[Rfam]
RNA sequence: AGCGCGACGGGGUCGACCGCGCGCGUCACGGUCAGGUAGUCGCGGAUCGCCGUGCCGUGCCGGUCCUC
Numbered sequence: 001a002g003c004g005c006g007a008c009g010g011g012g013u014c015g016a017c018c019g020c021g022c023g024c025g026u027c028a029c030g031g032u033c034a035g036g037u038a039g040u041c042g043c044g045g046a047u048c049g050c051c052g053u054g055c056c057g058u059g060c061c062g063g064u065c066c067u068c
Base pairs, nucleotide, nucleotide: 005062006061008059009058012029013028015027016026017025035056036055037054038053040052042050043049044048
Dot-bracket structure: ....((.((..((.(((.......))))).....((((.(.(((...))).))))).)).))......